The record is a 122-nucleotide RNA sequence from Massilia violaceinigra, which matches "Burkholderia RNA 11" in Rfam. Co-purified with Hfq, expression confirmed by Northern blot.
[Rfam]
RNA sequence: GCAACAUUGGCCACGCGCGCAAGAACCGCACCGUGUUCCUGUCCAUGCUGGGCAACUCGUGGUUCUGGUUUUACGGCGCGAUGAUCCUGUCGCAGUUUCCGUUGUACGCCAAGGAGUACCUG
Number, nucleotide and partner (000 for none) at each position: 001g000002c000003a000004a000005c000006a000007u000008u000009g000010g049011c000012c047013a000014c000015g044016c000017g042018c041019g040020c000021a000022a037023g036024a000025a034026c033027c000028g000029c000030a000031c000032c000033g026034u025035g000036u023037u022038c000039c000040u019041g018042u017043c000044c015045a000046u000047g012048c000049u010050g000051g121052g120053c000054a000055a117056c000057u115058c114059g000060u112061g000062g110063u000064u104065c000066u000067g099068g098069u000070u000071u095072u094073a000074c092075g091076g090077c089078g088079c000080g087081a000082u000083g000084a000085u000086c000087c080088u078089g077090u076091c075092g074093c000094a072095g071096u000097u000098u068099c067100c000101g000102u000103u000104g064105u000106a000107c000108g000109c000110c062111a000112a060113g000114g058115a057116g000117u055118a000119c000120c052121u051122g000
It is annotated as a small RNA.